The family of this 122-nucleotide RNA from Gouania willdenowi is "Small nucleolar RNA SNORA26". Lineage of the source: Eukaryota > Eumetazoa > Neopterygii > Euacanthomorphacea > Gouania. About the family: The snoRNA HBI-6 belong to the H/ACA family of snoRNAs, guiding the pseudouridylation of position U4522 if the 28S rRNA. HBI-6 is the human orthologue of mouse MBI-6 snoRNA. Rfam 15.1 lists 1,943 matches to the family in 640 species. It scores 51 bits against the family's covariance model. Pairs were carried over by alignment from the consensus structure, which was predicted with RNAalifold. Gene Ontology terms of the family: nucleolus and RNA processing.

RNA sequence: UUGCCCACUUGAGAUUGACGGUGUCUUUAGUGGCCAUUAUUGGGGGGCAGAUCACUAUCCUCUCUGUAAACCUGGGUCAGGGGUCUCACCCCCUGACUCUGGACCUGUUGGGAGUAACACUG
Numbered sequence: 001u002u003g004c005c006c007a008c009u010u011g012a013g014a015u016u017g018a019c020g021g022u023g024u025c026u027u028u029a030g031u032g033g034c035c036a037u038u039a040u041u042g043g044g045g046g047g048c049a050g051a052u053c054a055c056u057a058u059c060c061u062c063u064c065u066g067u068a069a070a071c072c073u074g075g076g077u078c079a080g081g082g083g084u085c086u087c088a089c090c091c092c093c094u095g096a097c098u099c100u101g102g103a104c105c106u107g108u109u110g111g112g113a114g115u116a117a118c119a120c121u122g
Stems, first nucleotide, its partner, number of pairs: 002049005008043002014038001016036002019030001058116001060114005072101001074099005080093004